[Rfam]
RNA: Bacillaceae-1 RNA
RNA sequence: UAGGGCGGAUGUUCGAUUAAGAUCGGCACCUCGUGUGCCAACAUCGAAUGACCUCACAUCGUGUGAG
Numbered sequence: 001u002a003g004g005g006c007g008g009a010u011g012u013u014c015g016a017u018u019a020a021g022a023u024c025g026g027c028a029c030c031u032c033g034u035g036u037g038c039c040a041a042c043a044u045c046g047a048a049u050g051a052c053c054u055c056a057c058a059u060c061g062u063g064u065g066a067g
Stems, first nucleotide, its partner, number of pairs: 011049007025039005053067005